[Rfam]
RNA sequence: GUCGCAAGCUUGAUGAAGCAUUUCGGAUGUAAAGUACACAACUCACCGAGAGCGCAAAACCGUGUGGAUAUCUCCGUUGCCUUCCUUCUGAUCUAGCUC
Numbered sequence: 001g002u003c004g005c006a007a008g009c010u011u012g013a014u015g016a017a018g019c020a021u022u023u024c025g026g027a028u029g030u031a032a033a034g035u036a037c038a039c040a041a042c043u044c045a046c047c048g049a050g051a052g053c054g055c056a057a058a059a060c061c062g063u064g065u066g067g068a069u070a071u072c073u074c075c076g077u078u079g080c081c082u083u084c085c086u087u088c089u090g091a092u093c094u095a096g097c098u099c
Base pairs, nucleotide, nucleotide: 004097005096024076025075026074027073

Rfam assigns this 99-nucleotide RNA from Lasiodiplodia theobromae to the family "Small nucleolar RNA Z13/snr52". It scores 89 bits against the family's covariance model. The family has 42 seed sequences and 1,203 matches in Rfam 15.1.